[Rfam]
RNA sequence: AUGGUAUUAUUUUGACAAGAAAGGAAUCCAUCCAUGGGGUCUUAAUAAAGCAUGGCGCAGUUGGAGUUUGGGAUUCCUCAUCCUCCAAGAAUUAAAACUGUUUGCCUGUGCUUAGACAAUAGCUCAGCACCGACGCUCAUGGAAGAGGAUCCCUUAGGGUAGCUAGCUAGCAGAAGCUUUUGGCUAAUGCAUUGGCAAACCGGCAAGUCACAGAACGGCAAUGGGCUCAGUCAUGAGUCUU
Numbered sequence: 001a002u003g004g005u006a007u008u009a010u011u012u013u014g015a016c017a018a019g020a021a022a023g024g025a026a027u028c029c030a031u032c033c034a035u036g037g038g039g040u041c042u043u044a045a046u047a048a049a050g051c052a053u054g055g056c057g058c059a060g061u062u063g064g065a066g067u068u069u070g071g072g073a074u075u076c077c078u079c080a081u082c083c084u085c086c087a088a089g090a091a092u093u094a095a096a097a098c099u100g101u102u103u104g105c106c107u108g109u110g111c112u113u114a115g116a117c118a119a120u121a122g123c124u125c126a127g128c129a130c131c132g133a134c135g136c137u138c139a140u141g142g143a144a145g146a147g148g149a150u151c152c153c154u155u156a157g158g159g160u161a162g163c164u165a166g167c168u169a170g171c172a173g174a175a176g177c178u179u180u181u182g183g184c185u186a187a188u189g190c191a192u193u194g195g196c197a198a199a200c201c202g203g204c205a206a207g208u209c210a211c212a213g214a215a216c217g218g219c220a221a222u223g224g225g226c227u228c229a230g231u232c233a234u235g236a237g238u239c240u241u
Stems, first nucleotide, its partner, number of pairs: 100200006119188002224239005
RNA: Early nodulin 40